[Rfam]
RNA sequence: UUCUUAUUUAGAGAGAUGGAGGGACUGGCCCUUUGAUAUCUCAGCAACAGACUUUUUUUGCACUGUGCUAAUUCCAGAAGCGUAACGCUUGAAGAUAAGAA
Numbered sequence: 001u002u003c004u005u006a007u008u009u010a011g012a013g014a015g016a017u018g019g020a021g022g023g024a025c026u027g028g029c030c031c032u033u034u035g036a037u038a039u040c041u042c043a044g045c046a047a048c049a050g051a052c053u054u055u056u057u058u059u060g061c062a063c064u065g066u067g068c069u070a071a072u073u074c075c076a077g078a079a080g081c082g083u084a085a086c087g088c089u090u091g092a093a094g095a096u097a098a099g100a101a
Base pairs, nucleotide, nucleotide: 001101002100003099004098005097006096007095008094013042014041015040016039017038021031022030023029025077026076027075028074043069044068045067046066048065049064050061073093078090079089080088081087082086